[Rfam]
RNA: Plant small nucleolar RNA R71
Organism: Lactuca sativa
RNA sequence: AGGUCGUGAUGUGGGCAAUUUCUAAGCAAACUCUUGUACCUUUCCCAUGCUUCAUAUAGAGAUUCUCCGGGCUGUUGCUCGAAGUUGGCAAUUGCUUUCUUUAGCUU
Numbered sequence: 001a002g003g004u005c006g007u008g009a010u011g012u013g014g015g016c017a018a019u020u021u022c023u024a025a026g027c028a029a030a031c032u033c034u035u036g037u038a039c040c041u042u043u044c045c046c047a048u049g050c051u052u053c054a055u056a057u058a059g060a061g062a063u064u065c066u067c068c069g070g071g072c073u074g075u076u077g078c079u080c081g082a083a084g085u086u087g088g089c090a091a092u093u094g095c096u097u098u099c100u101u102u103a104g105c106u107u
Stems, first nucleotide, its partner, number of pairs: 001107001003105002006101001057074002